[Rfam]
RNA: Sense overlapping transcript RNA 0042 (sot)
RNA sequence: AGGUACUCCCGAAUCCUCAGCGAGAGGAUAGGGAUAACGGCUGGUUGGCACAGCCAGCGGUUCGCCUGUUCGACCGUAGCGAGGGCCGGUUCGCCCCGCGAGAACAAGAGCCGAACCGCGAACCUUAAUAUCCCAACUGCGGUCGGGAAUCCCCGCCCUCAGCGAGCGCCCGUAUGGGCGCGAGCAGGGCGGGGA
Numbered sequence: 001a002g003g004u005a006c007u008c009c010c011g012a013a014u015c016c017u018c019a020g021c022g023a024g025a026g027g028a029u030a031g032g033g034a035u036a037a038c039g040g041c042u043g044g045u046u047g048g049c050a051c052a053g054c055c056a057g058c059g060g061u062u063c064g065c066c067u068g069u070u071c072g073a074c075c076g077u078a079g080c081g082a083g084g085g086c087c088g089g090u091u092c093g094c095c096c097c098g099c100g101a102g103a104a105c106a107a108g109a110g111c112c113g114a115a116c117c118g119c120g121a122a123c124c125u126u127a128a129u130a131u132c133c134c135a136a137c138u139g140c141g142g143u144c145g146g147g148a149a150u151c152c153c154c155g156c157c158c159u160c161a162g163c164g165a166g167c168g169c170c171c172g173u174a175u176g177g178g179c180g181c182g183a184g185c186a187g188g189g190c191g192g193g194g195a
Base pairs, nucleotide, nucleotide: 003038004037007034008033009032010031013029014028015027016026017025018024039055040054041053042052043051058118059117060116061115062114063113065108067106068105069104070103071102083096084095085094086093131148132147133146134145136143137142150195151194152193153192154191155190156189157188158187